[Rfam]
RNA sequence: UGGAAGAAUGAUACACGUGAUGCAAAUAGUUAAGCUUCUCGUCACAAUUUCUUCCUAUAAAAAAUUGCCUUCAGAUGACUGUAACUUGUGAAGUUUUAAUUUACAGACAGAUACGGGGCAUACAAGC
Numbered sequence: 001u002g003g004a005a006g007a008a009u010g011a012u013a014c015a016c017g018u019g020a021u022g023c024a025a026a027u028a029g030u031u032a033a034g035c036u037u038c039u040c041g042u043c044a045c046a047a048u049u050u051c052u053u054c055c056u057a058u059a060a061a062a063a064a065u066u067g068c069c070u071u072c073a074g075a076u077g078a079c080u081g082u083a084a085c086u087u088g089u090g091a092a093g094u095u096u097u098a099a100u101u102u103a104c105a106g107a108c109a110g111a112u113a114c115g116g117g118g119c120a121u122a123c124a125a126g127c
Stems, first nucleotide, its partner, number of pairs: 002055006015042003022035002066120006079106003084101001086099002
Description:
The record is a 127-nucleotide sequence from Frieseomelitta varia, which matches "Small Cajal body specific RNA 8" in Rfam. The family has 22 seed sequences and 955 matches in Rfam 15.1. It scores 78 bits against the family's covariance model. Lineage of the source: Eukaryota > Metazoa > Ecdysozoa > Pancrustacea > Frieseomelitta. Gene Ontology terms of the family: Cajal body, nucleolus and RNA processing.